RNA sequence: GAAGGGUUGGCCGAGUCUGGUCGAUGGCGCCGCACUGCUGAUGCGGAGCGGGUAACACCGCCGGGAGUUCGAAUCUCUCACCCUUCG
Numbered sequence: 001g002a003a004g005g006g007u008u009g010g011c012c013g014a015g016u017c018u019g020g021u022c023g024a025u026g027g028c029g030c031c032g033c034a035c036u037g038c039u040g041a042u043g044c045g046g047a048g049c050g051g052g053u054a055a056c057a058c059c060g061c062c063g064g065g066a067g068u069u070c071g072a073a074u075c076u077c078u079c080a081c082c083c084u085u086c087g
Stems, first nucleotide, its partner, number of pairs: 001086007010028004030046005063079005
RNA: tRNA
Organism: Micromonospora craterilacus